[Rfam]
RNA sequence: GGGGCCGUUUAGGAUUCGACGCCGGUUGCGAAACUUUAGGUGCAUGCCGAGUUGGUAACAGAACUCGUAAAUCCACUGUUGCAACUUCUUAUAGUUGCCAAUGACGACCAAUACGGUGCUGCUCUCGCUGCUUAAUUGCAGCUGACAUGCACUCCUGGUGCCUUCGGGCCCAGCAAUCAUCAGGGGAUGUCUGUAAACCCAAAAUGAUUGUCAUAUAGAACAGAAUCGCCGUGCAGUACGUUGUGGACGAAGCGGCUAAAACUUACACAACUCGCCCAAAGCACCCUGCCCGUCGGGUCGCCAAGGGUUAACUUAAUAGACACGGCUACGCAUGUAGUACCGACAGCGGAGUACUGGCGGACGGGGGUUCAAAUCCCCCCGGCUCCACCA
Numbered sequence: 001g002g003g004g005c006c007g008u009u010u011a012g013g014a015u016u017c018g019a020c021g022c023c024g025g026u027u028g029c030g031a032a033a034c035u036u037u038a039g040g041u042g043c044a045u046g047c048c049g050a051g052u053u054g055g056u057a058a059c060a061g062a063a064c065u066c067g068u069a070a071a072u073c074c075a076c077u078g079u080u081g082c083a084a085c086u087u088c089u090u091a092u093a094g095u096u097g098c099c100a101a102u103g104a105c106g107a108c109c110a111a112u113a114c115g116g117u118g119c120u121g122c123u124c125u126c127g128c129u130g131c132u133u134a135a136u137u138g139c140a141g142c143u144g145a146c147a148u149g150c151a152c153u154c155c156u157g158g159u160g161c162c163u164u165c166g167g168g169c170c171c172a173g174c175a176a177u178c179a180u181c182a183g184g185g186g187a188u189g190u191c192u193g194u195a196a197a198c199c200c201a202a203a204a205u206g207a208u209u210g211u212c213a214u215a216u217a218g219a220a221c222a223g224a225a226u227c228g229c230c231g232u233g234c235a236g237u238a239c240g241u242u243g244u245g246g247a248c249g250a251a252g253c254g255g256c257u258a259a260a261a262c263u264u265a266c267a268c269a270a271c272u273c274g275c276c277c278a279a280a281g282c283a284c285c286c287u288g289c290c291c292g293u294c295g296g297g298u299c300g301c302c303a304a305g306g307g308u309u310a311a312c313u314u315a316a317u318a319g320a321c322a323c324g325g326c327u328a329c330g331c332a333u334g335u336a337g338u339a340c341c342g343a344c345a346g347c348g349g350a351g352u353a354c355u356g357g358c359g360g361a362c363g364g365g366g367g368u369u370c371a372a373a374u375c376c377c378c379c380c381g382g383c384u385c386c387a388c389c390a
Base pairs, nucleotide, nucleotide: 001386002385003384004383005382006381007380020359021358022357023356024355025354026353034346035345037343039341040340041339043334044333045332046331047330048067049066050065051064052063055082056081057080058079059078060077123145124144127142128141129140130139131138174210175209176208177207178206179205184200185199186198190224191223192222193221194220228256229255230254231253232252240272242270274308275307276306277305281301282300284297285296286295288326289325290324292321293320294319363379364378365377366376367375

Shown here is a 390-nucleotide RNA sequence, a member of the family "transfer-messenger RNA". It scores 197 bits against the family's covariance model. Rfam's curators write: Bacterial tmRNA, also known as 10Sa RNA or SsrA, is named for its dual tRNA and mRNA-like properties. The base pairs follow the family's consensus structure, which is taken from published work. It is annotated as a non-coding RNA gene.